[Rfam]
The family of this 118-nucleotide RNA is "LOOT RNA". The family's consensus secondary structure is taken from published work. It is annotated as a small RNA.
RNA sequence: UGCCUAACCCUCUCAAAUUUUGUGAGGUAUGGCAAGAAAUCGUUCAGCAUACUAACCCCGUCAUAGGGCGUGCUGAACGUUGCAGACCGAAAGGUUUGUAUGCUACCGAAAGGUAGCA
Numbered sequence: 001u002g003c004c005u006a007a008c009c010c011u012c013u014c015a016a017a018u019u020u021u022g023u024g025a026g027g028u029a030u031g032g033c034a035a036g037a038a039a040u041c042g043u044u045c046a047g048c049a050u051a052c053u054a055a056c057c058c059c060g061u062c063a064u065a066g067g068g069c070g071u072g073c074u075g076a077a078c079g080u081u082g083c084a085g086a087c088c089g090a091a092a093g094g095u096u097u098g099u100a101u102g103c104u105a106c107c108g109a110a111a112g113g114u115a116g117c118a
Stems, first nucleotide, its partner, number of pairs: 001034004009027004014022002041079010057068003081100008101118006